The record is a 143-nucleotide RNA from Megalops atlanticus, which matches "Small nucleolar RNA SNORD94" in Rfam. Rfam links the family to the GO terms RNA processing and nucleolus. The literature on the family includes a 2003 paper in Nucleic Acids Res by Vitali et al., "Identification of 13 novel human modification guide RNAs". Lineage of the source: Eukaryota > Actinopterygii > Actinopteri > Teleostei > Megalops. It scores 105 bits against the family's covariance model. The family's consensus secondary structure was predicted with RNAalifold.
RNA sequence: GGGGCAGUGAUGAUUGGCGCAGGGGUACGGACCUCAGCUGAUGAUGGGAGCUGAGCGUUGGCACUUUUCCUUUGCUCAGCUGGCAUGUGGCUGGCCAUCCAGAGGUGGUGUCAACGCGAUACAAAUGCCAAAAUCUGAGCCUC
Numbered sequence: 001g002g003g004g005c006a007g008u009g010a011u012g013a014u015u016g017g018c019g020c021a022g023g024g025g026u027a028c029g030g031a032c033c034u035c036a037g038c039u040g041a042u043g044a045u046g047g048g049a050g051c052u053g054a055g056c057g058u059u060g061g062c063a064c065u066u067u068u069c070c071u072u073u074g075c076u077c078a079g080c081u082g083g084c085a086u087g088u089g090g091c092u093g094g095c096c097a098u099c100c101a102g103a104g105g106u107g108g109u110g111u112c113a114a115c116g117c118g119a120u121a122c123a124a125a126u127g128c129c130a131a132a133a134u135c136u137g138a139g140c141c142u143c
Stems, first nucleotide, its partner, number of pairs: 001143005